The family of this 67-nucleotide sequence is "DUF3800-VIII RNA".
The sequence is in the family's curated seed alignment.
Rfam classes the family as a small RNA.
[Rfam]
RNA sequence: GCCGCCCUGAAUGGGCCGAAGGCCUGCGCUCGUGCGUGGGGUACGGACGUAGGCAGGUCGGGGCGGC
Numbered sequence: 001g002c003c004g005c006c007c008u009g010a011a012u013g014g015g016c017c018g019a020a021g022g023c024c025u026g027c028g029c030u031c032g033u034g035c036g037u038g039g040g041g042u043a044c045g046g047a048c049g050u051a052g053g054c055a056g057g058u059c060g061g062g063g064c065g066g067c
Stems, first nucleotide, its partner, number of pairs: 001067010012056001015054003021042001023040007